[Rfam]
RNA sequence: GGCUUUGCACAGUGGCAGUAUUGUAGCCAAUGAGGUUUAUCUGAGGUACAAUUAUUGCUAAUUGAAAACUUUUCCCAAUACCCUGACGUGAUGACUUGAAAUAGUCGGCAUCGGCAAUUUUUGAUGGUCUCUACAGAGA
Dot-bracket structure: ...................(((((.(((.....((.....))..))))))))................................(.((((.(((((......))))).))).).)............((((....))))
The record is a 139-nucleotide sequence from Molossus molossus, which matches "U4 spliceosomal RNA" in Rfam. U4 small nuclear RNA (U4 snRNA) is a component of the major U2-dependent spliceosome. Lineage of the source: Eukaryota > Opisthokonta > Amniota > Molossidae > Molossus. It is annotated as a spliceosomal small nuclear RNA.